[Rfam]
RNA sequence: GAAGCUGACUAGACAGUCGCUGCUUGUUAACUCAAGGAGAGGAAAGUCCGGGCUCCACAGAGCGGAGUGACGGCUAACGGCCGUACGUUGCGAAACGAGGAAUAGGGCCACAGAGACGAGCGUAUUUAGUUACGGUGAAACGCGGUAACCUCCACUCGGAGCAAAGUCAAAUAGGGUAGUAAUAGCACGGCUCGUGCUGCUACCGGGUAGACUGCUUGAGUGCAUGAGUAAUCAUGUGCCUAGAUGAAUGACUGUCCACGACAGAACCCGGCUUAUCGGUUGGCUUCAACU
Dot-bracket structure: ((((((((((((((((((.((.((((......)))).))....[[[.[[[[[((((...[[[[.((((((((((.....))))).((((....))))..((...(((((...........((((......)))).........)))..)))))))))))))...((((......((((((...(((((.]]]]))))))))))).....))))......((((((((....))))))))..........)))))))..........]]]]]]]].).))))))))))....